[Rfam]
RNA sequence: GCCCCUCUAGCUCAACGGUUAGAGCAGCGUCCUUUUAAGUCGUGGGUUGUGGGUUCGAAUCCCACGGGGGGGCA
Number, nucleotide and partner (000 for none) at each position: 001g073002c072003c071004c070005c069006u068007c067008u000009a000010g025011c024012u023013c022014a000015a000016c000017g000018g000019u000020u000021a000022g013023a012024g011025c010026a000027g043028c042029g041030u000031c039032c000033u000034u000035u000036u000037a000038a000039g031040u000041c029042g028043u027044g000045g000046g000047u000048u000049g065050u064051g063052g062053g061054u000055u000056c000057g000058a000059a000060u000061c053062c052063c051064a050065c049066g000067g007068g006069g005070g004071g003072g002073c001074a000
RNA: tRNA
Organism: Bifidobacterium merycicum